[Rfam]
RNA: Streptomyces RNA 5676
RNA sequence: GGAUGAGAGAUACACCCCGCCCACGGGACACCAUGGGCGGCACAGGACGGGGCCUCCCCAGCUUCGACCUGGUCGUGCCCUCGCGCACACAACCGGAGCCCUGAGCUUCGGGUCUCCUCACGAUCGGA
Numbered sequence: 001g002g003a004u005g006a007g008a009g010a011u012a013c014a015c016c017c018c019g020c021c022c023a024c025g026g027g028a029c030a031c032c033a034u035g036g037g038c039g040g041c042a043c044a045g046g047a048c049g050g051g052g053c054c055u056c057c058c059c060a061g062c063u064u065c066g067a068c069c070u071g072g073u074c075g076u077g078c079c080c081u082c083g084c085g086c087a088c089a090c091a092a093c094c095g096g097a098g099c100c101c102u103g104a105g106c107u108u109c110g111g112g113u114c115u116c117c118u119c120a121c122g123a124u125c126g127g128a
Stems, first nucleotide, its partner, number of pairs: 004120004009116002017040007025032002042073001043071004048066006075088004093112002096109003100105001121126001